[Rfam]
RNA sequence: CGUAAUCUACCCUGUAGAUCCGGGCUUUUGUAGAACCCAUGUAGAUAUCAGAAGCUCGUCUCUACAGGUAUCUUACGG
Numbered sequence: 001c002g003u004a005a006u007c008u009a010c011c012c013u014g015u016a017g018a019u020c021c022g023g024g025c026u027u028u029u030g031u032a033g034a035a036c037c038c039a040u041g042u043a044g045a046u047a048u049c050a051g052a053a054g055c056u057c058g059u060c061u062c063u064a065c066a067g068g069u070a071u072c073u074u075a076c077g078g
Stems, first nucleotide, its partner, number of pairs: 002076004010068002016063003021058010
Dot-bracket structure: .((((....((....(((..((((((((((..................))))))))))..)))...))....))))..
The record is a 78-nucleotide RNA from Coptotermes formosanus, which matches "mir-10 microRNA precursor family" in Rfam. The literature on the family includes a 2001 paper in Science by Lee and Ambros, "An extensive class of small RNAs in Caenorhabditis elegans". The base pairs follow the family's consensus structure, which was predicted with PFOLD. It scores 52 bits against the family's covariance model.